[Rfam]
Nucleotides: 126
Base pairs, nucleotide, nucleotide: 003037005035006034007033008032009031013030014029015028016027017026018025048081049080050079051078052077053076054075056073057072058071060069061068091120092119093118094117095116096115097114098113099112100111101110102109103108
Number, partner (000 for none) and nucleotide at each position: 001000u002000u003037u004000g005035c006034c007033u008032u009031u010000a011000a012000a013030c014029c015028a016027a017026u018025c019000c020000c021000g022000u023000g024000a025018g026017g027016u028015u029014g030013g031009a032008a033007a034006g035005g036000a037003g038000u039000c040000g041000u042000g043000a044000a045000u046000a047000g048081c049080u050079a051078u052077a053076c054075g055000u056073g057072c058071g059000u060069c061068c062000a063000a064000u065000u066000u067000u068061g069060g070000u071058c072057g073056c074000c075054u076053g077052u078051a079050u080049a081048g082000u083000g084000g085000c086000a087000c088000c089000c090000u091120g092119c093118g094117g095116c096115c097114a098113c099112c100111a101110u102109c103108c104000a105000a106000u107000c108103g109102g110101a111100u112099g113098g114097u115096g116095g117094c118093c119092g120091u121000u122000u123000u124000u125000g126000u